[Rfam]
RNA sequence: GUCAUAAUUUGGGGCGAUUGUCGGACUAGUCGCUGUUGAAGGAACGAGGCAUUUACCGAGUGACUAGACCGUACACUCGCGUCCUAAACGAAGGG
Number, nucleotide and partner (000 for none) at each position: 001g000002u000003c000004a000005u000006a000007a000008u000009u000010u000011g085012g084013g083014g082015c081016g080017a000018u000019u075020g074021u073022c071023g070024g069025a000026c000027u066028a065029g064030u063031c062032g000033c060034u059035g000036u000037u000038g000039a000040a000041g000042g000043a000044a000045c000046g000047a000048g000049g000050c000051a000052u000053u000054u000055a000056c000057c000058g000059a034060g033061u000062g031063a030064c029065u028066a027067g000068a000069c024070c023071g022072u000073a021074c020075a019076c000077u000078c000079g000080c016081g015082u014083c013084c012085u011086a000087a000088a000089c000090g000091a000092a000093g000094g000095g000
mir-286 microRNA precursor family: a 95-nucleotide sequence from Anopheles sinensis. It scores 68 bits against the family's covariance model. Pairs were carried over by alignment from the consensus structure, which was predicted with RNAalifold. The family has 15 seed sequences and 37 matches in Rfam 15.1. The source organism's lineage runs through Eukaryota, Protostomia, Diptera, Culicomorpha and Myzorhynchus.